[Rfam]
RNA sequence: UCCUGACAGCAACAGCUGACAAUAGCCAAGACAGGAGAUCAUAAUG
Numbered sequence: 001u002c003c004u005g006a007c008a009g010c011a012a013c014a015g016c017u018g019a020c021a022a023u024a025g026c027c028a029a030g031a032c033a034g035g036a037g038a039u040c041a042u043a044a045u046g
Stems, first nucleotide, its partner, number of pairs: 002035004007018004

The family of this 46-nucleotide sequence is "Mu-gpT-DE RNA". Pairs were carried over by alignment from the consensus structure, which is taken from published work. The family's RNA type in Rfam is small RNA.